[Rfam]
RNA: rpsB sRNA
Organism: Rhizobium sp. BG4
RNA sequence: CGCACGCAAGGCAUGGGAUGGUCCGGGAGAAAUCCGGAUUGUUCCGCCCGGUGGCAUCCCGAAAGGAUGCUGUUCGUCUUGCGGGGGUUCAACCGGAAAAGGAUGACUA
Numbered sequence: 001c002g003c004a005c006g007c008a009a010g011g012c013a014u015g016g017g018a019u020g021g022u023c024c025g026g027g028a029g030a031a032a033u034c035c036g037g038a039u040u041g042u043u044c045c046g047c048c049c050g051g052u053g054g055c056a057u058c059c060c061g062a063a064a065g066g067a068u069g070c071u072g073u074u075c076g077u078c079u080u081g082c083g084g085g086g087g088u089u090c091a092a093c094c095g096g097a098a099a100a101g102g103a104u105g106a107c108u109a
Stems, first nucleotide, its partner, number of pairs: 001086001003084001005083007015045002024036002027034001053071006